[Rfam]
RNA sequence: AGCACUCUUGGAUAGUGCUGGCAGAUGUAAGUCCGACGUGCGGCAACGCACGGGCCGGAGGGGGUUCUCCCCCGGCCUCUGGGAUUAC
Numbered sequence: 001a002g003c004a005c006u007c008u009u010g011g012a013u014a015g016u017g018c019u020g021g022c023a024g025a026u027g028u029a030a031g032u033c034c035g036a037c038g039u040g041c042g043g044c045a046a047c048g049c050a051c052g053g054g055c056c057g058g059a060g061g062g063g064g065u066u067c068u069c070c071c072c073c074g075g076c077c078u079c080u081g082g083g084a085u086u087a088c
Stems, first nucleotide, its partner, number of pairs: 001019006027088004033083002038051005052078007

S15-Methanomicrobia ribosomal protein leader: an 88-nucleotide sequence. The family's RNA type in Rfam is cis-regulatory leader. Clan: Ribosomal Protein S15 Leader clan.